This 248-nucleotide part of an RNA from an uncultured archaeon belongs to the Rfam family "Archaeal large subunit ribosomal RNA". Gene Ontology terms of the family: ribosome and structural constituent of ribosome. Pairs were carried over by alignment from the consensus structure, which is taken from published work. A reference for the family is Yusupov et al. (2001), "Crystal structure of the ribosome at 5.5 A resolution", Science.
[Rfam]
RNA sequence: GUUGUCUGAAGGAAAGUUGCAUUCAGUACGAGAGGAACUAUGCAACGGUGCCACUGGUCGAUCGGUUGUCCGGCAGGGCAAUGCCGAGCAGCUACGCACCAAGGGAUAAGGGCUGAAAGCAUCUAAGCCCGAAACCCAUCCUGAAAAGAGACAACAUUAAGGACACUCAUAAAAGAUGAGGUUGAUAGAGUCGGGAUGUACGCACCAAGGCAACGAGGUGUUUAGUCCGCGGCUACUAAUAGUCCGUA
Numbered sequence: 001g002u003u004g005u006c007u008g009a010a011g012g013a014a015a016g017u018u019g020c021a022u023u024c025a026g027u028a029c030g031a032g033a034g035g036a037a038c039u040a041u042g043c044a045a046c047g048g049u050g051c052c053a054c055u056g057g058u059c060g061a062u063c064g065g066u067u068g069u070c071c072g073g074c075a076g077g078g079c080a081a082u083g084c085c086g087a088g089c090a091g092c093u094a095c096g097c098a099c100c101a102a103g104g105g106a107u108a109a110g111g112g113c114u115g116a117a118a119g120c121a122u123c124u125a126a127g128c129c130c131g132a133a134a135c136c137c138a139u140c141c142u143g144a145a146a147a148g149a150g151a152c153a154a155c156a157u158u159a160a161g162g163a164c165a166c167u168c169a170u171a172a173a174a175g176a177u178g179a180g181g182u183u184g185a186u187a188g189a190g191u192c193g194g195g196a197u198g199u200a201c202g203c204a205c206c207a208a209g210g211c212a213a214c215g216a217g218g219u220g221u222u223u224a225g226u227c228c229g230c231g232g233c234u235a236c237u238a239a240u241a242g243u244c245c246g247u248a
Stems, first nucleotide, its partner, number of pairs: 001155007010142004016046007047100005055094003062087005067080005103137003110130005161245004166180004186238003189234005194228003202221005209214001